Source information:
The family of this 73-nucleotide RNA sequence from Alkalihalobacillus alcalophilus is "tRNA". Pairs were carried over by alignment from the consensus structure, which is taken from published work. The family's RNA type in Rfam is transfer RNA. NCBI's taxonomy places the organism under Bacteria, Bacillota, Bacilli, Bacillaceae, Alkalihalobacillus alcalophilus.

[Rfam]
RNA sequence: GAUCCGUUAGCUCAGCUGGGAGAGCGCUACCUUGACAGGGUAGAGGUCACUGGUUCGAGCCCAGUACGGGUCA
Numbered sequence: 001g002a003u004c005c006g007u008u009a010g011c012u013c014a015g016c017u018g019g020g021a022g023a024g025c026g027c028u029a030c031c032u033u034g035a036c037a038g039g040g041u042a043g044a045g046g047u048c049a050c051u052g053g054u055u056c057g058a059g060c061c062c063a064g065u066a067c068g069g070g071u072c073a
Stems, first nucleotide, its partner, number of pairs: 001072007010025004027043005049065005